[Rfam]
RNA sequence: CCCUUUUGAACGCUGAGUUUCUUAUCUUUAUGAUAAGGAAGCGGGGGAACCAAUAAUUGGGGUGAAUCCGGGGAAGAACCGGUAGGGUGAACCAUUCAUCCGAAUCCGUCAGCUAACUUCGUAAGCGUGGAUGGUGCGAACGG
Numbered sequence: 001c002c003c004u005u006u007u008g009a010a011c012g013c014u015g016a017g018u019u020u021c022u023u024a025u026c027u028u029u030a031u032g033a034u035a036a037g038g039a040a041g042c043g044g045g046g047g048a049a050c051c052a053a054u055a056a057u058u059g060g061g062g063u064g065a066a067u068c069c070g071g072g073g074a075a076g077a078a079c080c081g082g083u084a085g086g087g088u089g090a091a092c093c094a095u096u097c098a099u100c101c102g103a104a105u106c107c108g109u110c111a112g113c114u115a116a117c118u119u120c121g122u123a124a125g126c127g128u129g130g131a132u133g134g135u136g137c138g139a140a141c142g143g
Stems, first nucleotide, its partner, number of pairs: 011127004018040009041122006051059002060107003068082004085101004
Dot-bracket structure: ..........((((...(((((((((.....)))))))))((((((....((.....))(((.....((((.......))))..((((.........))))...))).........)))))).))))................
Shown here is a 143-nucleotide RNA sequence from Heliorestis acidaminivorans, a member of the family "c-di-AMP riboswitch aptamer (ydaO/yuaA leader)". About the family: This family represents a conserved RNA structure found upstream of the ydaO and yuaA genes in Bacillus subtilis and related genes in other bacteria. It scores 89 bits against the family's covariance model.